[Rfam]
RNA: Bacillaceae-1 RNA
Organism: Bacillus sp. V59.32b
RNA sequence: UAAAUCAGAACACUGACUAAGUGCGCCACGUCCUUAUGUCUUCGUCUGUGUGACCCACUUCCUGUGGG
Number, nucleotide and partner (000 for none) at each position: 001u000002a000003a000004a000005u000006c000007a000008g000009a000010a000011c050012a049013c048014u000015g046016a045017c044018u000019a000020a000021g000022u000023g000024c000025g040026c000027c038028a037029c000030g000031u000032c000033c000034u000035u000036a000037u028038g027039u000040c025041u000042u000043c000044g017045u016046c015047u000048g013049u012050g011051u000052g000053a000054c068055c067056c066057a065058c064059u000060u000061c000062c000063u000064g058065u057066g056067g055068g054